[Rfam]
RNA sequence: UGCAAGUAUUUUACGAUUAAGAAGCAAUUGUUUCUUCUACAGAUCGUGUAUUAAUUA
Numbered sequence: 001u002g003c004a005a006g007u008a009u010u011u012u013a014c015g016a017u018u019a020a021g022a023a024g025c026a027a028u029u030g031u032u033u034c035u036u037c038u039a040c041a042g043a044u045c046g047u048g049u050a051u052u053a054a055u056u057a
Base pairs, nucleotide, nucleotide: 019036020035021034022033023032024031025030